[Rfam]
RNA: Glycine riboswitch aptamer
Organism: Mycobacterium lacus
RNA sequence: CGAUGCCUCUGGAAAGCGGUGGCGGCCCCGAGCGGUCCUCACCCGCCGAUGGGGAAAGGCGACACCCACCUCCCGGUGCACGCGUCGCUGAAUCUCUCAGGCGCCUGGCGAACGGGUGAAGACAGAGGGAGAGGG
Numbered sequence: 001c002g003a004u005g006c007c008u009c010u011g012g013a014a015a016g017c018g019g020u021g022g023c024g025g026c027c028c029c030g031a032g033c034g035g036u037c038c039u040c041a042c043c044c045g046c047c048g049a050u051g052g053g054g055a056a057a058g059g060c061g062a063c064a065c066c067c068a069c070c071u072c073c074c075g076g077u078g079c080a081c082g083c084g085u086c087g088c089u090g091a092a093u094c095u096c097u098c099a100g101g102c103g104c105c106u107g108g109c110g111a112a113c114g115g116g117u118g119a120a121g122a123c124a125g126a127g128g129g130a131g132a133g134g135g
Stems, first nucleotide, its partner, number of pairs: 004130001006128006018043004045102003048098002052096003058089006